[Rfam]
RNA sequence: UACUUAUCCAGAGAGGUAGAGGGACUGGCCCUAUGACACCUCAGCAGCGGGUUCUGUAAUAGGAACACCGUGCUAAUUCCAGCAAGCAAGUCUUGAAAGAUAAGUG
Numbered sequence: 001u002a003c004u005u006a007u008c009c010a011g012a013g014a015g016g017u018a019g020a021g022g023g024a025c026u027g028g029c030c031c032u033a034u035g036a037c038a039c040c041u042c043a044g045c046a047g048c049g050g051g052u053u054c055u056g057u058a059a060u061a062g063g064a065a066c067a068c069c070g071u072g073c074u075a076a077u078u079c080c081a082g083c084a085a086g087c088a089a090g091u092c093u094u095g096a097a098a099g100a101u102a103a104g105u106g
Stems, first nucleotide, its partner, number of pairs: 001106008013042005021031003025082004043074004048070002050066001052064002078098001083095004